[Rfam]
RNA sequence: GAUUCUGAGCGAUUUGCGUGCGUGCAUCCGCCUCAGUGAACUCUUGUUAGUUCUAAUUUAAUCUAAACUUUAUAAAAACACCUACUCCCUGUAAUCUAUGCUUGCGAGUGUAGAUCUUUCAUAGUGGUGUCUAGUUUUGUUCCAUUUGUUAACAGCUUUCAGCCGGUGACGUGUUGUAUCCUAGGCAGUGGCCCACCCAUAGGUCAUAAUGCCGAAGAUCAACAAAUACGGUCUCGAGCUGCAAUGGGCUCCAGAAUUUCCGUGGAUGUUUGAGGACACAGAGGAGAAGUUGGACUAC
Numbered sequence: 001g002a003u004u005c006u007g008a009g010c011g012a013u014u015u016g017c018g019u020g021c022g023u024g025c026a027u028c029c030g031c032c033u034c035a036g037u038g039a040a041c042u043c044u045u046g047u048u049a050g051u052u053c054u055a056a057u058u059u060a061a062u063c064u065a066a067a068c069u070u071u072a073u074a075a076a077a078a079c080a081c082c083u084a085c086u087c088c089c090u091g092u093a094a095u096c097u098a099u100g101c102u103u104g105c106g107a108g109u110g111u112a113g114a115u116c117u118u119u120c121a122u123a124g125u126g127g128u129g130u131c132u133a134g135u136u137u138u139g140u141u142c143c144a145u146u147u148g149u150u151a152a153c154a155g156c157u158u159u160c161a162g163c164c165g166g167u168g169a170c171g172u173g174u175u176g177u178a179u180c181c182u183a184g185g186c187a188g189u190g191g192c193c194c195a196c197c198c199a200u201a202g203g204u205c206a207u208a209a210u211g212c213c214g215a216a217g218a219u220c221a222a223c224a225a226a227u228a229c230g231g232u233c234u235c236g237a238g239c240u241g242c243a244a245u246g247g248g249c250u251c252c253a254g255a256a257u258u259u260c261c262g263u264g265g266a267u268g269u270u271u272g273a274g275g276a277c278a279c280a281g282a283g284g285a286g287a288a289g290u291u292g293g294a295c296u297a298c
Stems, first nucleotide, its partner, number of pairs: 007033001009031003015026003038053005082127005091119001094115009173186003197211001201210001227253001230250004235246002